[Rfam]
RNA sequence: UACGACAGCUUAGCCGCCUGAAAAGGCGAGGGCUGGUGACUUUUGGGUCACCGGCCU
Numbered sequence: 001u002a003c004g005a006c007a008g009c010u011u012a013g014c015c016g017c018c019u020g021a022a023a024a025g026g027c028g029a030g031g032g033c034u035g036g037u038g039a040c041u042u043u044u045g046g047g048u049c050a051c052c053g054g055c056c057u
Stems, first nucleotide, its partner, number of pairs: 015028004031056010
Annotation: Pseudomonas sRNA P26: a 57-nucleotide sequence from Echinimonas agarilytica. This small RNA (sRNA) was computationally identified in the genome of the opportunistic pathogen Pseudomonas aeruginosa and its expression verified by northern blot analysis. P26 is conserved across many Gammaproteobacteria species and appears to be consistently located between the DNA directed RNA polymerase (beta subunit) and 50S ribosomal protein L7/L12 genes. The family's consensus secondary structure was predicted with RNAalifold. Rfam classes the family as a non-coding RNA gene.